[Rfam]
Nucleotides: 159
Base pairs, nucleotide, nucleotide: 003157004156005155006154007153008152009151010150017029018028019027031139032138033129034128035048036047037046038045043127044126051105052104053103054102055101109125110124111123112122113121131142132141133140
Number, partner (000 for none) and nucleotide at each position: 001000a002000a003157u004156c005155g006154u007153u008152u009151u010150c011000g012000g013000g014000g015000c016000a017029g018028g019027g020000u021000g022000a023000a024000a025000u026000u027019c028018c029017c030000g031139a032138c033129c034128g035048g036047c037046g038045g039000u040000a041000u042000a043127g044126u045038c046037c047036g048035c049000g050000a051105a052104c053103u054102g055101u056000u057000u058000u059000a060000a061000a062000a063000g064000u065000g066000g067000g068000u069000g070000g071000c072000u073000u074000a075000u076000a077000u078000a079000g080000u081000c082000a083000g084000u085000a086000u087000c088000c089000a090000c091000g092000g093000a094000u095000u096000u097000u098000a099000g100000u101055a102054c103053a104052g105051u106000u107000g108000a109125u110124u111123u112122g113121g114000u115000g116000a117000g118000a119000u120000u121113c122112c123111a124110a125109a126044a127043c128034c129033g130000a131142c132141a133140g134000u135000a136000a137000a138032g139031u140133c141132u142131g143000g144000a145000u146000g147000a148000g149000a150010g151009a152008a153007g154006a155005c156004g157003g158000c159000a
FMN riboswitch aptamer (RFN element): a 159-nucleotide RNA sequence from Catenibacillus scindens. Rfam links the family to the GO term FMN binding. NCBI's taxonomy places the organism under Bacteria, Bacillota, Clostridia, Lachnospirales, Catenibacillus. Rfam describes the family as follows. The RFN element is a highly conserved domain that is found frequently in the 5'-untranslated regions of prokaryotic mRNAs that encode for flavin mononucleotide (FMN) biosynthesis and transport proteins. This element is a metabolite-dependent riboswitch that directly binds FMN in the absence of proteins. In Bacillus subtilis, the riboswitch most likely controls gene expression by causing premature transcription termination within the 5' untranslated region of the ribDEAHT operon and precluding access to the ribosome-binding site of ypaA mRNA.The FMN riboswitch structure, reported in present an FMN-bound six-stem junction, adopts a butterfly-like scaffold, stapled together by opposingly directed but nearly identically folded peripheral domains.